[Rfam]
Nucleotides: 246
Stems, first nucleotide, its partner, number of pairs: 009229003015225003
Number, partner (000 for none) and nucleotide at each position: 001000u002000c003000c004000c005000c006000c007000a008000c009229a010228g011227u012000a013000a014000u015225c016224c017223g018000u019000c020000c021000a022000a023000c024000c025000g026000a027000u028000u029000u030000u031000u032000c033000u034000g035000c036000a037000a038000g039000g040000a041000a042000u043000g044000c045000c046000u047000u048000c049000g050000c051000c052000g053000g054000c055000c056000g057000c058000g059000u060000c061000c062000g063000c064000g065000g066000g067000a068000c069000u070000c071000g072000g073000g074000g075000c076000a077000u078000c079000a080000c081000a082000g083000c084000a085000c086000g087000u088000c089000g090000c091000a092000g093000c094000u095000u096000c097000g098000g099000c100000u101000c102000c103000c104000g105000u106000a107000u108000c109000g110000g111000g112000a113000u114000a115000u116000u117000c118000g119000u120000u121000c122000c123000a124000a125000g126000c127000u128000u129000u130000u131000g132000c133000c134000g135000c136000g137000c138000c139000u140000g141000g142000g143000a144000a145000a146000u147000u148000g149000c150000u151000g152000u153000g154000c155000g156000c157000c158000g159000u160000a161000c162000c163000c164000g165000u166000g167000u168000c169000g170000u171000c172000g173000u174000c175000u176000c177000c178000a179000a180000u181000g182000g183000g184000a185000g186000c187000a188000c189000g190000g191000c192000g193000c194000g195000g196000g197000c198000c199000a200000g201000u202000c203000u204000c205000g206000c207000g208000g209000u210000c211000g212000u213000g214000u215000a216000u217000u218000g219000g220000u221000c222000u223017c224016g225015g226000a227011a228010c229009u230000u231000a232000a233000c234000c235000c236000u237000a238000u239000g240000u241000u242000c243000g244000c245000c246000u

The record is a 246-nucleotide part of an RNA from Lasiosphaeria miniovina, which matches "Ascomycota telomerase RNA" in Rfam. Rfam links the family to the GO terms telomere maintenance via telomerase, telomerase activity and telomerase catalytic core complex. It is annotated as a non-coding RNA gene.